[Rfam]
SAM riboswitch aptamer (S box leader): a 99-nucleotide RNA sequence from Staphylococcus saprophyticus. The organism belongs to Staphylococcus saprophyticus, within Bacteria. It is one of the family's seed sequences. About the family: The SAM riboswitch is found upstream of a number of genes which code for proteins involved in methionine or cysteine biosynthesis in Gram-positive bacteria. For this family Rfam cites "The S box regulon: a new global transcription termination control system for methionine and cysteine biosynthesis genes in gram-positive bacteria" (Grundy and Henkin, Mol Microbiol, 1998). Gene Ontology term of the family: regulation of gene expression.
RNA sequence: AUCUUAUUUCGAGAAGCUGAGGGACUUGGCCCAGUGAUGCUUCAGCAACCGGCUGUGUAGUACGGUGCUAAAACCAACGAUACACUCGAAUGAUAAGUA
Numbered sequence: 001a002u003c004u005u006a007u008u009u010c011g012a013g014a015a016g017c018u019g020a021g022g023g024a025c026u027u028g029g030c031c032c033a034g035u036g037a038u039g040c041u042u043c044a045g046c047a048a049c050c051g052g053c054u055g056u057g058u059a060g061u062a063c064g065g066u067g068c069u070a071a072a073a074c075c076a077a078c079g080a081u082a083c084a085c086u087c088g089a090a091u092g093a094u095a096a097g098u099a
Base pairs, nucleotide, nucleotide: 003097004096005095006094007093008092013043014042015041016040017039021032022031023030026077027076028075029074044069045068046067047066049065050064052061053060054059073091078088079087080086